Shown here is a 139-nucleotide RNA sequence from Candidatus Afipia apatlaquensis, a member of the family "flg-Rhizobiales RNA". A search with the family's covariance model found it, with a score of 114 bits.
RNA sequence: UGAACCGCGGCUUGGGAGAGCCUCAACGGUUCGCACGAUCCGCGUCACGCCUUGGGAGAGGCACGGCGCGGUUCAACAAGGGGAGAUUGGCCGAUGGAGAAUACGCUUCUCGUCGCGUUGUCGCGGCAGAUGUCGCUUG
Numbered sequence: 001u002g003a004a005c006c007g008c009g010g011c012u013u014g015g016g017a018g019a020g021c022c023u024c025a026a027c028g029g030u031u032c033g034c035a036c037g038a039u040c041c042g043c044g045u046c047a048c049g050c051c052u053u054g055g056g057a058g059a060g061g062c063a064c065g066g067c068g069c070g071g072u073u074c075a076a077c078a079a080g081g082g083g084a085g086a087u088u089g090g091c092c093g094a095u096g097g098a099g100a101a102u103a104c105g106c107u108u109c110u111c112g113u114c115g116c117g118u119u120g121u122c123g124c125g126g127c128a129g130a131u132g133u134c135g136c137u138u139g
Base pairs, nucleotide, nucleotide: 001033002032003031004030005029006028007027009022010021011020012019013018037074038073040071041070042069049062050061051060052059053058092115093114094113095112097111098110099109100108101107

By type it is a cis-regulatory element. The organism belongs to Afipia, within Bacteria.